[Rfam]
The family of this 101-nucleotide RNA sequence from Fusarium venenatum is "Small nucleolar RNA Z13/snr52". By type it is a C/D-box small nucleolar RNA. Taxonomically the source falls in Fusarium sambucinum species complex (Eukaryota, Opisthokonta, Hypocreales, Nectriaceae).

RNA sequence: CCUUCCCAUAUGAUGAAAUAUUUCGGAUGUAAAAACAUUUAUUCUCGGAAAGCGCAAAAAAUAAUGUCGAGAUUUCCGUUGCCUUCCUUCUGAUUGGGAAA
Numbered sequence: 001c002c003u004u005c006c007c008a009u010a011u012g013a014u015g016a017a018a019u020a021u022u023u024c025g026g027a028u029g030u031a032a033a034a035a036c037a038u039u040u041a042u043u044c045u046c047g048g049a050a051a052g053c054g055c056a057a058a059a060a061a062u063a064a065u066g067u068c069g070a071g072a073u074u075u076c077c078g079u080u081g082c083c084u085u086c087c088u089u090c091u092g093a094u095u096g097g098g099a100a101a
Base pairs, nucleotide, nucleotide: 003100004099005098024078025077026076027075
About this RNA: The match comes from Rfam's covariance-model search (98 bits).